Shown here is a 114-nucleotide sequence from Apostichopus japonicus, a member of the family "Potassium channel RNA editing signal". A search with the family's covariance model found it, with a score of 86 bits. Taxonomically the source falls in Apostichopus (Eukaryota, Echinozoa, Aspidochirotacea, Stichopodidae).
RNA sequence: GUGGGUUAUGGGGACAUGAAACCUCAGAGUACAGGUGCUAAGAUUGUUGGGUCUCUAUGUGCUAUCACUGGUGUGCUUACCAUAGCACUUCCGGUGCCUGUUAUCGUCUCAAAU
Numbered sequence: 001g002u003g004g005g006u007u008a009u010g011g012g013g014a015c016a017u018g019a020a021a022c023c024u025c026a027g028a029g030u031a032c033a034g035g036u037g038c039u040a041a042g043a044u045u046g047u048u049g050g051g052u053c054u055c056u057a058u059g060u061g062c063u064a065u066c067a068c069u070g071g072u073g074u075g076c077u078u079a080c081c082a083u084a085g086c087a088c089u090u091c092c093g094g095u096g097c098c099u100g101u102u103a104u105c106g107u108c109u110c111a112a113a114u
Stems, first nucleotide, its partner, number of pairs: 001114002005110001008107004013102004018097001020095001037077001039075002049063002